[Rfam]
The family of this 201-nucleotide RNA sequence from Pseudomonas sp. OIL-1 is "Pseudomonas sRNA P27". Rfam classes the family as a small RNA. The organism belongs to Pseudomonas, within Bacteria.
RNA sequence: GGGUUUCACUCCUGGAUUUACCAUGUGCCACUCUUUCGAGCGGCCUGUUUUGGUGUCUGAUCCAGCCUGCACUGAAUCGGGAGCACCAUCUGCGUAGGCCUGAAAACAAAGGUUUUCGGUUUAAGGCUCGCACCACCUACGGUCUUGGAUAGCCCCCACUACGCAGGGACCCCAAUAAGUGACACGCCGCCAGGCGUGUCG
Numbered sequence: 001g002g003g004u005u006u007c008a009c010u011c012c013u014g015g016a017u018u019u020a021c022c023a024u025g026u027g028c029c030a031c032u033c034u035u036u037c038g039a040g041c042g043g044c045c046u047g048u049u050u051u052g053g054u055g056u057c058u059g060a061u062c063c064a065g066c067c068u069g070c071a072c073u074g075a076a077u078c079g080g081g082a083g084c085a086c087c088a089u090c091u092g093c094g095u096a097g098g099c100c101u102g103a104a105a106a107c108a109a110a111g112g113u114u115u116u117c118g119g120u121u122u123a124a125g126g127c128u129c130g131c132a133c134c135a136c137c138u139a140c141g142g143u144c145u146u147g148g149a150u151a152g153c154c155c156c157c158a159c160u161a162c163g164c165a166g167g168g169a170c171c172c173c174a175a176u177a178a179g180u181g182a183c184a185c186g187c188c189g190c191c192a193g194g195c196g197u198g199u200c201g
Base pairs, nucleotide, nucleotide: 002172003171005169006168007167011163013161014160022047023046027044028043029042031040032039033038051088052087053086054085055084056083057080058079059078060077061076063074064073065072092159094157097154098153099152119150120149121148122147123146124145125144126143127142128141193200